[Rfam]
RNA sequence: GUUGGCUAUGGAGACAUGUGUCCUACCACCCUGGGGGGAAAGAUAGUGGGAACUCUGUGUGCUAUUGCUGGGGUGCUCACCAUUGCACUCCCUGUGCCAGUCAUUGUGUCCAAC
Numbered sequence: 001g002u003u004g005g006c007u008a009u010g011g012a013g014a015c016a017u018g019u020g021u022c023c024u025a026c027c028a029c030c031c032u033g034g035g036g037g038g039a040a041a042g043a044u045a046g047u048g049g050g051a052a053c054u055c056u057g058u059g060u061g062c063u064a065u066u067g068c069u070g071g072g073g074u075g076c077u078c079a080c081c082a083u084u085g086c087a088c089u090c091c092c093u094g095u096g097c098c099a100g101u102c103a104u105u106g107u108g109u110c111c112a113a114c
Stems, first nucleotide, its partner, number of pairs: 001114002004111002007108005013102003018097004037077002040074001049063002
Description
This 114-nucleotide RNA from Pogona vitticeps belongs to the Rfam family "Potassium channel RNA editing signal". By type it is a cis-regulatory element. The source organism's lineage runs through Eukaryota, Dipnotetrapodomorpha, Sauria, Bifurcata and Pogona. Gene Ontology term of the family: adenosine to inosine editing.